Shown here is an 89-nucleotide RNA sequence from Arthrobacter alpinus, a member of the family "ZMP/ZTP riboswitch aptamer (pfl RNA motif)".
Nucleotides: 089
Base pairs, nucleotide, nucleotide: 003053006050008048009047010046011045012044015041016040017077018076019075020074026037027036028035029034067083069081070080
Number, partner (000 for none) and nucleotide at each position: 001000u002000u003053a004000a005000g006050g007000g008048g009047u010046u011045g012044c013000g014000a015041c016040u017077g018076g019075c020074g021000a022000u023000g024000a025000g026037g027036u028035g029034g030000g031000a032000c033000a034029c035028c036027a037026c038000c039000g040016g041015g042000g043000a044012g045011c046010a047009g048008c049000a050006c051000g052000a053003u054000g055000g056000a057000u058000g059000a060000c061000c062000u063000c064000a065000a066000g067083g068000a069081u070080c071000g072000u073000a074020c075019g076018c077017c078000u079000g080070g081069g082000a083067c084000g085000a086000g087000a088000g089000g
NCBI's taxonomy places the organism under Bacteria, Actinomycetota, Micrococcales, Micrococcaceae, Arthrobacter.